[Rfam]
Rfam assigns this 103-nucleotide sequence from Brevibacillus fluminis to the family "Purine riboswitch aptamer". The match comes from Rfam's covariance-model search (77 bits). Taxonomically the source falls in Brevibacillus (Bacteria, Bacillota, Caryophanales, Paenibacillaceae).
RNA sequence: CAUACUCCAUACAUCGCUACUCGUAUAAUGGUUGGGAAUAUGGCCCGAGAGUUUCUACCAAACGACCGUAAAUCGUUUGACUACGAGUGAAAGAGUGCCUAGG
Number, nucleotide and partner (000 for none) at each position: 001c000002a000003u000004a000005c000006u000007c000008c000009a000010u000011a000012c000013a000014u000015c000016g000017c000018u089019a088020c087021u086022c085023g084024u083025a082026u000027a000028a000029u050030g000031g000032u048033u047034g046035g045036g044037a000038a000039u000040a000041u000042g000043g000044c036045c035046c034047g033048a032049g000050a029051g000052u000053u000054u000055c000056u000057a000058c000059c079060a078061a077062a076063c075064g074065a073066c000067c000068g000069u000070a000071a000072a000073u065074c064075g063076u062077u061078u060079g059080a000081c000082u025083a024084c023085g022086a021087g020088u019089g018090a000091a000092a000093g000094a000095g000096u000097g000098c000099c000100u000101a000102g000103g000